[Rfam]
RNA sequence: AAUCGGAUGGGAGGCAAUGACGCGCGGCUCCCUACUCGGUCGCCCGAGCCGCGCCGAGCCACUGGCGAGCCCGACCCGUCCAGGG
Numbered sequence: 001a002a003u004c005g006g007a008u009g010g011g012a013g014g015c016a017a018u019g020a021c022g023c024g025c026g027g028c029u030c031c032c033u034a035c036u037c038g039g040u041c042g043c044c045c046g047a048g049c050c051g052c053g054c055c056g057a058g059c060c061a062c063u064g065g066c067g068a069g070c071c072c073g074a075c076c077c078g079u080c081c082a083g084g085g
Base pairs, nucleotide, nucleotide: 003083005081006080007079008078009077010076011075013060014059015058022054023053024052025051026050027049028048029047038072039071040068041067042066043065044064
Overview: Rfam assigns this 85-nucleotide RNA to the family "c-di-GMP-II-GCG riboswitch aptamer". Its Rfam clan is "c-di-GMP_II riboswitch clan". A reference for the family is Weinberg et al. (2017), "Bioinformatic analysis of riboswitch structures uncovers variant classes with altered ligand specificity", Proc Natl Acad Sci U S A.